[Rfam]
RNA sequence: CGGUGAGGCUCCCUAACCGUUAUCGAUGGGGACACUCGAUUGUGCUGUGGGUACUUUCUCCAGUGGGGUCCUUAGACGCAUGUCGUCAAGAGCAUGAUGUGAGGCCGGGUUAGAUGCCCG
Numbered sequence: 001c002g003g004u005g006a007g008g009c010u011c012c013c014u015a016a017c018c019g020u021u022a023u024c025g026a027u028g029g030g031g032a033c034a035c036u037c038g039a040u041u042g043u044g045c046u047g048u049g050g051g052u053a054c055u056u057u058c059u060c061c062a063g064u065g066g067g068g069u070c071c072u073u074a075g076a077c078g079c080a081u082g083u084c085g086u087c088a089a090g091a092g093c094a095u096g097a098u099g100u101g102a103g104g105c106c107g108g109g110u111u112a113g114a115u116g117c118c119c120g
Base pairs, nucleotide, nucleotide: 001019002018003017004016008033010031011030012029013028035103036102037101038100039098040097041096042095043094044093045092046091049072050071051070053069054068055067056066057065075087076086077085078084106120107119108118109117110116